[Rfam]
RNA sequence: AUUAUUAAAAAAUAAAUUACUCAUAUAUCCCUGUAAUAUGGUCAGGAGUCUCUACGGGUUGCCAAUUAACAAGCCGCUAUGGGUGAAUUUAAUAGUCCU
Numbered sequence: 001a002u003u004a005u006u007a008a009a010a011a012a013u014a015a016a017u018u019a020c021u022c023a024u025a026u027a028u029c030c031c032u033g034u035a036a037u038a039u040g041g042u043c044a045g046g047a048g049u050c051u052c053u054a055c056g057g058g059u060u061g062c063c064a065a066u067u068a069a070c071a072a073g074c075c076g077c078u079a080u081g082g083g084u085g086a087a088u089u090u091a092a093u094a095g096u097c098c099u
Base pairs, nucleotide, nucleotide: 018085019084020083021082022081023080024079025078030046031045032044033043056075057074059072060071061070